[Rfam]
RNA sequence: UGCCUUUGUGUUGCCUGUUCAUUUUUCACUGUGAUGAACGAGGUGUCAUCUAAGGCACACAGCAAAUCUUUUCACGGCAUGAUGCAAGUCUGGAUUUCUCAAUUCCCAUUGCUUUUGCUGUGACAAGAACAUUU
Number, nucleotide and partner (000 for none) at each position: 001u000002g056003c055004c054005u053006u052007u000008g000009u048010g047011u000012u045013g044014c043015c042016u040017g039018u038019u037020c036021a035022u034023u033024u000025u000026u000027c000028a000029c000030u000031g000032u000033g023034a022035u021036g020037a019038a018039c017040g016041a000042g015043g014044u013045g012046u000047c010048a009049u000050c000051u000052a006053a005054g004055g003056c002057a000058c000059a000060c000061a000062g000063c000064a000065a000066a000067u000068c127069u126070u125071u000072u122073c000074a121075c120076g119077g118078c117079a000080u000081g000082a116083u000084g114085c000086a000087a000088g109089u108090c000091u000092g104093g103094a000095u000096u000097u000098c000099u000100c000101a000102a000103u093104u092105c000106c000107c000108a089109u088110u000111g000112c000113u000114u084115u000116u082117g078118c077119u076120g075121u074122g072123a000124c000125a070126a069127g068128a000129a000130c000131a000132u000133u000134u000